[Rfam]
The record is a 72-nucleotide RNA sequence from Sphingomonas chungangi, which matches "Makes More Granules Regulator RNA (mmgR)" in Rfam.
RNA sequence: AGAUCGGGCCUUUCAGGCAUCCUCUCCUAAAACUUAAGGCCGUCCUUCGGGGCGGUCUUUUUUUAUCCCGCG
Numbered sequence: 001a002g003a004u005c006g007g008g009c010c011u012u013u014c015a016g017g018c019a020u021c022c023u024c025u026c027c028u029a030a031a032a033c034u035u036a037a038g039g040c041c042g043u044c045c046u047u048c049g050g051g052g053c054g055g056u057c058u059u060u061u062u063u064u065a066u067c068c069c070g071c072g
Stems, first nucleotide, its partner, number of pairs: 008018004037058009

The family's RNA type in Rfam is small RNA.
The match comes from Rfam's covariance-model search (46 bits).